[Rfam]
RNA sequence: AAAUAAAAGCAGAAGCACCCGCUUCUCGCCUUAGCUGACCGAGGUCACUGGGCUGGAUAGUUAAUGACUUGUCUUUAGAGAUGAGGAUAACUGCGCGCGGGUUCGUUACGAACUCGUUUUUUUGUGCGAU
Numbered sequence: 001a002a003a004u005a006a007a008a009g010c011a012g013a014a015g016c017a018c019c020c021g022c023u024u025c026u027c028g029c030c031u032u033a034g035c036u037g038a039c040c041g042a043g044g045u046c047a048c049u050g051g052g053c054u055g056g057a058u059a060g061u062u063a064a065u066g067a068c069u070u071g072u073c074u075u076u077a078g079a080g081a082u083g084a085g086g087a088u089a090a091c092u093g094c095g096c097g098c099g100g101g102u103u104c105g106u107u108a109c110g111a112a113c114u115c116g117u118u119u120u121u122u123u124g125u126g127c128g129a130u
Stems, first nucleotide, its partner, number of pairs: 011026006028053003036047004097117009

The record is a 130-nucleotide sequence from Enterococcus florum, which matches "Ribosomal protein L20 leader" in Rfam.
Rfam describes the family as follows. This family is a putative r-protein leader autoregulatory structure found in B. subtilis and other low-GC Gram-positive bacteria. It is located in the 5' untranslated regions of mRNAs encoding initiation factor 3 followed by ribosomal proteins L35 and L20 (infC-rpmI-rplT). A Rho-independent transcription terminator structure that is probably involved in regulation is included at the 3' end.
The family's consensus secondary structure was predicted with CMfinder.
On this family, see Zengel and Lindahl, Prog Nucleic Acid Res Mol Biol 1994: "Diverse mechanisms for regulating ribosomal protein synthesis in Escherichia coli".